[Rfam]
RNA sequence: AUCCUCUUUAAAGAUGGUCCUGUGAGGCUGGCAAGAGGAAAAAGAUCACAAAGUAGUUGAUUUGUGCUUCUUUCUUGCCGCCUCCUAGACAUACUAGGAGGCUUUUUCUAU
Numbered sequence: 001a002u003c004c005u006c007u008u009u010a011a012a013g014a015u016g017g018u019c020c021u022g023u024g025a026g027g028c029u030g031g032c033a034a035g036a037g038g039a040a041a042a043a044g045a046u047c048a049c050a051a052a053g054u055a056g057u058u059g060a061u062u063u064g065u066g067c068u069u070c071u072u073u074c075u076u077g078c079c080g081c082c083u084c085c086u087a088g089a090c091a092u093a094c095u096a097g098g099a100g101g102c103u104u105u106u107u108c109u110a111u
Base pairs, nucleotide, nucleotide: 003038004037005036006035007034008033015030016029017028018027019026040073041072042071044069045068047066048065049064050063051062052061077105080102081101082100083099084098085097086096087095088094
Shown here is a 111-nucleotide RNA sequence from Shouchella oshimensis, a member of the family "PyrR binding site". The organism belongs to Shouchella oshimensis, within Bacteria. This family represents the PyrR binding site and terminator structure.